[Rfam]
RNA sequence: UAGAGUUGCAAAACAUUCCCGAUGGGGUUCGUCAAAGCUAUGACGAACAUGCCUUGUAACCUAAAAUAAUAAGGGGGAAACAAAACAUG
Numbered sequence: 001u002a003g004a005g006u007u008g009c010a011a012a013a014c015a016u017u018c019c020c021g022a023u024g025g026g027g028u029u030c031g032u033c034a035a036a037g038c039u040a041u042g043a044c045g046a047a048c049a050u051g052c053c054u055u056g057u058a059a060c061c062u063a064a065a066a067u068a069a070u071a072a073g074g075g076g077g078a079a080a081c082a083a084a085a086c087a088u089g
Stems, first nucleotide, its partner, number of pairs: 016079005024054003028047007060074002
The record is an 89-nucleotide RNA sequence from Lacticaseibacillus casei, which matches "SAM-III riboswitch aptamer (SMK box)" in Rfam. The sequence is in the family's curated seed alignment. NCBI's taxonomy places the organism under Bacteria, Bacillati, Lactobacillales, Lacticaseibacillus, Lacticaseibacillus casei.